Record summary:
A member of the RNA family "Small nucleolar RNA Z122" from Arabis nemorensis, 140 nucleotides long. Pairs were carried over by alignment from the consensus structure, which was predicted with PFOLD. It is annotated as a C/D-box small nucleolar RNA. Its family is annotated with nucleolus and RNA processing in the Gene Ontology. On this family, see Qu et al., Mol Cell Biol 1999: "Seven novel methylation guide small nucleolar RNAs are processed from a common polycistronic transcript by Rat1p and RNase III in yeast". The family has 23 seed sequences and 822 matches in Rfam 15.1. Taxonomically the source falls in Arabis (Eukaryota, Spermatophyta, Gunneridae, Brassicales). The match comes from Rfam's covariance-model search (38 bits).
RNA sequence: UUUGGGAGAUAUGAUGACAAAAAUACGAAAUCUUCUAAGGUUAAAUGCUCUGCAGAUAGAAAUGUAUUUGCAUCGAUAUUUUCACAGGCAUUUUGCAAUGCUCAACAAAUAUAUUUGCACGUCAGACGUCUGAUCCCAUA
Numbered sequence: 001u002u003u004g005g006g007a008g009a010u011a012u013g014a015u016g017a018c019a020a021a022a023a024u025a026c027g028a029a030a031u032c033u034u035c036u037a038a039g040g041u042u043a044a045a046u047g048c049u050c051u052g053c054a055g056a057u058a059g060a061a062a063u064g065u066a067u068u069u070g071c072a073u074c075g076a077u078a079u080u081u082u083c084a085c086a087g088g089c090a091u092u093u094u095g096c097a098a099u100g101c102u103c104a105a106c107a108a109a110u111a112u113a114u115u116u117g118c119a120c121g122u123c124a125g126a127c128g129u130c131u132g133a134u135c136c137c138a139u140a
Stems, first nucleotide, its partner, number of pairs: 001140001003138005